mir-30 microRNA precursor family: a 71-nucleotide RNA sequence from Ophiophagus hannah. Rfam describes the family as follows. This family consists of the mammalian microRNA (miRNA) precursor mir-30a. Animal miRNAs are transcribed as ~70nt precursors and subsequently processed by the Dicer enzyme to give a ~22nt product. In this case the mature sequence comes from both the 3' (miR-30) and 5' (mir-97-6) arms of the precursor. The extents of the hairpin precursors are not generally known and are estimated based on hairpin prediction. Rfam's curators put it in the seed alignment. The base pairs follow the family's consensus structure, which was predicted with PFOLD.

[Rfam]
RNA sequence: UCUGUUGUUGUAAACAUCCCCGACUGGAAGCUGGAAAACGUAGCUUUCAGUCCGAUGUUUGCUGCUGCUGG
Numbered sequence: 001u002c003u004g005u006u007g008u009u010g011u012a013a014a015c016a017u018c019c020c021c022g023a024c025u026g027g028a029a030g031c032u033g034g035a036a037a038a039c040g041u042a043g044c045u046u047u048c049a050g051u052c053c054g055a056u057g058u059u060u061g062c063u064g065c066u067g068c069u070g071g
Base pairs, nucleotide, nucleotide: 002070004068005067008064010062011061012060013059014058015057016056017055018054023051024050025049026048027047028046029045030044031043032042